Record summary:
SucA RNA motif: an 81-nucleotide RNA sequence from Comamonas flocculans. Taxonomically the source falls in Comamonas (Bacteria, Pseudomonadati, Pseudomonadota, Betaproteobacteria). A reference for the family is Weinberg et al. (2007), "Identification of 22 candidate structured RNAs in bacteria using the CMfinder comparative genomics pipeline", Nucleic Acids Res.
[Rfam]
RNA sequence: UCGCAUCCGCCAUCCGGUACAGCCGUGUCGCGGAAGGUUUUCAACCAGCUCGUGUUUCCUUCAGGGAAACAAAAGUCAGCG
Numbered sequence: 001u002c003g004c005a006u007c008c009g010c011c012a013u014c015c016g017g018u019a020c021a022g023c024c025g026u027g028u029c030g031c032g033g034a035a036g037g038u039u040u041u042c043a044a045c046c047a048g049c050u051c052g053u054g055u056u057u058c059c060u061u062c063a064g065g066g067a068a069a070c071a072a073a074a075g076u077c078a079g080c081g
Stems, first nucleotide, its partner, number of pairs: 002081003006034005015025004036046004048076003054070007

It scores 78 bits against the family's covariance model. The family's RNA type in Rfam is cis-regulatory element. Rfam links the family to the GO term regulation of translation.